[Rfam]
RNA sequence: CCUCCCGUUCUUGGCGGGCCCCGGCGUGUCCGUGCCGGGCUCUGUAAUGUAAAGGAGGUAAAACAGCCACCGGCGCGAUGUCUUCGGUGCCCGCGGCCUUCCCCUCCGCCGGUCCUAUCCUCACGUGCCGGGACAACG
Numbered sequence: 001c002c003u004c005c006c007g008u009u010c011u012u013g014g015c016g017g018g019c020c021c022c023g024g025c026g027u028g029u030c031c032g033u034g035c036c037g038g039g040c041u042c043u044g045u046a047a048u049g050u051a052a053a054g055g056a057g058g059u060a061a062a063a064c065a066g067c068c069a070c071c072g073g074c075g076c077g078a079u080g081u082c083u084u085c086g087g088u089g090c091c092c093g094c095g096g097c098c099u100u101c102c103c104c105u106c107c108g109c110c111g112g113u114c115c116u117a118u119c120c121u122c123a124c125g126u127g128c129c130g131g132g133a134c135a136a137c138g
Base pairs, nucleotide, nucleotide: 001058002057003056004055005054015044016043017042018041020039022037023036024035025034071130072129073128074127075126076125090112091111093109094108095107096106
Rfam assigns this 138-nucleotide RNA sequence from Turnix velox to the family "Small nucleolar RNA SNORA57". U99 belongs to the H/ACA class of snoRNAs which are thought to guide the sites of modification of uridines to pseudouridines, the target for this family is unknown.